RNA sequence: UAGAAUCUAGGCGAUGGAGCUCGCCAUAACCGCCGUCCGGCGAUCGCGCUAAAAUUUGCGCCGACCUUUUUUCUAAACUGGCUUUGGACUGGCUGAUGGCUCCUACUUGUUU
Numbered sequence: 001u002a003g004a005a006u007c008u009a010g011g012c013g014a015u016g017g018a019g020c021u022c023g024c025c026a027u028a029a030c031c032g033c034c035g036u037c038c039g040g041c042g043a044u045c046g047c048g049c050u051a052a053a054a055u056u057u058g059c060g061c062c063g064a065c066c067u068u069u070u071u072u073c074u075a076a077a078c079u080g081g082c083u084u085u086g087g088a089c090u091g092g093c094u095g096a097u098g099g100c101u102c103c104u105a106c107u108u109g110u111u112u
Base pairs, nucleotide, nucleotide: 010025011024012023013022016103017102018101019100020099021098032093033092034091

Rfam assigns this 112-nucleotide RNA from Geitlerinema sp. PCC 7407 to the family "Fluoride riboswitch aptamer (crcB RNA motif)". The match comes from Rfam's covariance-model search (49 bits).